[Rfam]
RNA sequence: AGACUUGGUCGUAGAGCCACGACCAACACAAGGGCUUGGAAACAACCCUUUGAUUUAAAAAACGCUCACCAAGA
Numbered sequence: 001a002g003a004c005u006u007g008g009u010c011g012u013a014g015a016g017c018c019a020c021g022a023c024c025a026a027c028a029c030a031a032g033g034g035c036u037u038g039g040a041a042a043c044a045a046c047c048c049u050u051u052g053a054u055u056u057a058a059a060a061a062a063c064g065c066u067c068a069c070c071a072a073g074a
Stems, first nucleotide, its partner, number of pairs: 006025006014067004
Shown here is a 74-nucleotide sequence, a member of the family "6A RNA". The base pairs follow the family's consensus structure, which is taken from published work. It is one of the family's seed sequences.